Shown here is a 154-nucleotide RNA sequence from Marinomonas transparens, a member of the family "FMN riboswitch aptamer (RFN element)". A reference for the family is Wilt et al. (2020), "FMN riboswitch aptamer symmetry facilitates conformational switching through mutually exclusive coaxial stacking configurations", J Struct Biol X.

[Rfam]
RNA sequence: UUUCGUUCUCGGGGCGGGGUGAAACUCCCCACCGGCGGUAAGGAAAUAUUAUUUCUAAGCCCGCGAGCGCCCAUUGGGAUUCUUCCUGAUGGGGUCAGCAGAUCUGGUGUAACUCCAGAGCCGACGGUGAUAGUCCGGAUGAUAGAGAGCGUGU
Numbered sequence: 001u002u003u004c005g006u007u008c009u010c011g012g013g014g015c016g017g018g019g020u021g022a023a024a025c026u027c028c029c030c031a032c033c034g035g036c037g038g039u040a041a042g043g044a045a046a047u048a049u050u051a052u053u054u055c056u057a058a059g060c061c062c063g064c065g066a067g068c069g070c071c072c073a074u075u076g077g078g079a080u081u082c083u084u085c086c087u088g089a090u091g092g093g094g095u096c097a098g099c100a101g102a103u104c105u106g107g108u109g110u111a112a113c114u115c116c117a118g119a120g121c122c123g124a125c126g127g128u129g130a131u132a133g134u135c136c137g138g139a140u141g142a143u144a145g146a147g148a149g150c151g152u153g154u
Base pairs, nucleotide, nucleotide: 004151005150006149007148008147009146010145017029018028019027031134032133033123034122035064036063037062038061059121060120067099068098103119104118105117106116107115125137126136127135